[Rfam]
RNA: mir-205 microRNA precursor family
RNA sequence: GUAUUCUAUCCUUCAUUCCACCGGAGUCUGUCUUAAAGUGCAAAUCAGAUUUCAGUGGUUUGAAGAGUAAAACACA
Numbered sequence: 001g002u003a004u005u006c007u008a009u010c011c012u013u014c015a016u017u018c019c020a021c022c023g024g025a026g027u028c029u030g031u032c033u034u035a036a037a038g039u040g041c042a043a044a045u046c047a048g049a050u051u052u053c054a055g056u057g058g059u060u061u062g063a064a065g066a067g068u069a070a071a072a073c074a075c076a
Base pairs, nucleotide, nucleotide: 011065012064013063014062015061019057020056021055023053024052025051026050028048029047030046